[Rfam]
RNA sequence: UGGUGGUGAUGUCUGAACUCACGAUGGUCUUCAGAUCCCUCACGCCUGAGGGGCUGCUGACAACGCCACUGGCAACUGCUGAACCAGGAAG
Number, nucleotide and partner (000 for none) at each position: 001u086002g085003g084004u083005g000006g000007u000008g000009a000010u000011g000012u000013c000014u000015g000016a000017a000018c000019u000020c000021a000022c000023g000024a000025u000026g000027g000028u000029c000030u000031u000032c000033a000034g000035a000036u000037c000038c000039c000040u000041c000042a000043c000044g000045c000046c000047u000048g000049a000050g000051g000052g000053g000054c000055u000056g000057c000058u000059g000060a000061c000062a000063a000064c000065g000066c000067c000068a000069c000070u000071g000072g000073c000074a000075a000076c000077u000078g000079c000080u000081g000082a000083a004084c003085c002086a001087g000088g000089a000090a000091g000
Rfam assigns this 91-nucleotide sequence from Strix occidentalis to the family "Small nucleolar RNA SNORD35".
The source organism's lineage runs through Eukaryota, Sarcopterygii, Sauropsida, Neognathae and Strix occidentalis.
Its family is annotated with nucleolus and RNA processing in the Gene Ontology.
Pairs were carried over by alignment from the consensus structure, which was predicted with PFOLD.
From the family's description: U35 is a C/D box snoRNA located in intron 6 of ribosomal protein L13A and intron 3 of ribosomal protein S11 in humans and at homologous positions in mouse and chicken ribosomal protein genes.